[Rfam]
RNA sequence: UGCACAAAGCACAUGAUGACAAAGCACCAAAACUGACUCUGUAUGAAGUCCAUUCAGUCCAACGCUGAGCUUUGUGUC
Numbered sequence: 001u002g003c004a005c006a007a008a009g010c011a012c013a014u015g016a017u018g019a020c021a022a023a024g025c026a027c028c029a030a031a032a033c034u035g036a037c038u039c040u041g042u043a044u045g046a047a048g049u050c051c052a053u054u055c056a057g058u059c060c061a062a063c064g065c066u067g068a069g070c071u072u073u074g075u076g077u078c
Stems, first nucleotide, its partner, number of pairs: 002077009
Rfam assigns this 78-nucleotide RNA from Apaloderma vittatum to the family "Small nucleolar RNA SNORD69". The base pairs follow the family's consensus structure. The family's RNA type in Rfam is C/D-box small nucleolar RNA. snoRNA HBII-210 belongs to the C/D family of snoRNAs. It is the human orthologue of the mouse MBII-210 and is predicted to guide the 2'O-ribose methylation of large 28S rRNA on residue G4464. The organism belongs to Apaloderma, within Eukaryota. Gene Ontology terms of the family: nucleolus and RNA processing.